The family of this 298-nucleotide sequence from Lasiosphaeria miniovina is "5' ureB small RNA".
The organism belongs to Lasiosphaeria, within Eukaryota.
A reference for the family is Wen et al. (2013), "Helicobacter pylori 5'ureB-sRNA, a cis-encoded antisense small RNA, negatively regulates ureAB expression by transcription termination", J Bacteriol.
RNA sequence: UGGACUCGAAGGCCUGCUGCGGACAGAUAAAGUGUAUGUGGGUGUCGAGGCCGCCGGCGGUGAUGAUCUUGCCCUCGCCGGCGACAACGUCAGUGCAACUGCCGACGAUCAUGUUGGGCGUCACGCCGUCCAUGACGUCGGGGUUGCCGGCCUUGCCGAUGCCGACAAUGACGCCAGCCUUGACGCCGAUGUCGGCCUUGUAGAUGCCGGACCAGUCGAGGAUGAGGGCAUUGGUCACGACCAUGUCUAGCGUGUCGGCGUCGGACCGGCCCGUGGCCUGGCCCAUGCCCUCGCGCAG
Numbered sequence: 001u002g003g004a005c006u007c008g009a010a011g012g013c014c015u016g017c018u019g020c021g022g023a024c025a026g027a028u029a030a031a032g033u034g035u036a037u038g039u040g041g042g043u044g045u046c047g048a049g050g051c052c053g054c055c056g057g058c059g060g061u062g063a064u065g066a067u068c069u070u071g072c073c074c075u076c077g078c079c080g081g082c083g084a085c086a087a088c089g090u091c092a093g094u095g096c097a098a099c100u101g102c103c104g105a106c107g108a109u110c111a112u113g114u115u116g117g118g119c120g121u122c123a124c125g126c127c128g129u130c131c132a133u134g135a136c137g138u139c140g141g142g143g144u145u146g147c148c149g150g151c152c153u154u155g156c157c158g159a160u161g162c163c164g165a166c167a168a169u170g171a172c173g174c175c176a177g178c179c180u181u182g183a184c185g186c187c188g189a190u191g192u193c194g195g196c197c198u199u200g201u202a203g204a205u206g207c208c209g210g211a212c213c214a215g216u217c218g219a220g221g222a223u224g225a226g227g228g229c230a231u232u233g234g235u236c237a238c239g240a241c242c243a244u245g246u247c248u249a250g251c252g253u254g255u256c257g258g259c260g261u262c263g264g265a266c267c268g269g270c271c272c273g274u275g276g277c278c279u280g281g282c283c284c285a286u287g288c289c290c291u292c293g294c295g296c297a298g
Base pairs, nucleotide, nucleotide: 001298003296005295007293008292009291015167016166018164019163021079022078025075026074033056034055037053038052040051043048060072061071062070080157081156084153088149095147096146097145098144099143102142103141104139105138106137112134113133115132116131117130118129119128120126121125173282174281175280176279180276181275182274185271186269187268195229196228197227198226199225210217232263233262234261239256240255243253244252245251